Shown here is a 94-nucleotide RNA, a member of the family "6C RNA".
A search with the family's covariance model found it, with a score of 50 bits.
On this family, see Weinberg et al., Nucleic Acids Res 2007: "Identification of 22 candidate structured RNAs in bacteria using the CMfinder comparative genomics pipeline".
RNA sequence: GGGGGGGGGGGUGGAAUUUUUUUUUAAAAACCCCCCGAACCGCCCCCCCGGGGGCCCCCCCCCUUUCCCCCCCUUUUGGGGGGGGCCCCCCCAA
Numbered sequence: 001g002g003g004g005g006g007g008g009g010g011g012u013g014g015a016a017u018u019u020u021u022u023u024u025u026a027a028a029a030a031c032c033c034c035c036c037g038a039a040c041c042g043c044c045c046c047c048c049c050g051g052g053g054g055c056c057c058c059c060c061c062c063c064u065u066u067c068c069c070c071c072c073c074u075u076u077u078g079g080g081g082g083g084g085g086c087c088c089c090c091c092c093a094a
Base pairs, nucleotide, nucleotide: 002049003048004047005046006045007044008043010041011040012039050090051089052088053087054086055085056084057083058082059081060080061079062078